This 133-nucleotide RNA sequence from Nyssa sinensis belongs to the Rfam family "MIR168 microRNA precursor family". Gene Ontology terms of the family: RISC complex and miRNA-mediated post-transcriptional gene silencing. NCBI's taxonomy places the organism under Eukaryota, Magnoliopsida, Pentapetalae, Nyssaceae, Nyssa.
[Rfam]
RNA sequence: AUUGCGGCGGUCUCUAAUUCGCUUGGUGCAGGUCGGGACCUCUUCGCCGGGCAGCGACAUCAUUUGUGUCUGUAAAUUGUAUGGGCGAAUUGGGUCCCGCCUUGCAUCAACUGAAUCGGAGACUGCGGUGAAU
Numbered sequence: 001a002u003u004g005c006g007g008c009g010g011u012c013u014c015u016a017a018u019u020c021g022c023u024u025g026g027u028g029c030a031g032g033u034c035g036g037g038a039c040c041u042c043u044u045c046g047c048c049g050g051g052c053a054g055c056g057a058c059a060u061c062a063u064u065u066g067u068g069u070c071u072g073u074a075a076a077u078u079g080u081a082u083g084g085g086c087g088a089a090u091u092g093g094g095u096c097c098c099g100c101c102u103u104g105c106a107u108c109a110a111c112u113g114a115a116u117c118g119g120a121g122a123c124u125g126c127g128g129u130g131a132a133u
Stems, first nucleotide, its partner, number of pairs: 013120002017116004023110010034099005040093002